[Rfam]
RNA sequence: AUAAUGAUACUUCCGUAAAACGGUCACAGAGAUGAUGGUGCGAUUCCAAUGU
Number, nucleotide and partner (000 for none) at each position: 001a000002u000003a000004a000005u000006g000007a000008u000009a000010c000011u000012u049013c023014c022015g021016u000017a000018a000019a000020a000021c015022g014023g013024u035025c034026a033027c000028a000029g000030a000031g000032a000033u026034g025035a024036u048037g047038g046039u000040g000041c000042g000043a000044u000045u000046c038047c037048a036049a012050u000051g000052u000
Description: Rfam assigns this 52-nucleotide sequence from Lachnospiraceae bacterium A2 to the family "pemK RNA". The match comes from Rfam's covariance-model search (45 bits). Rfam classes the family as a cis-regulatory element. NCBI's taxonomy places the organism under Bacteria, Bacillati, Bacillota, Clostridia, Lachnospiraceae. Pairs were carried over by alignment from the consensus structure, which is taken from published work.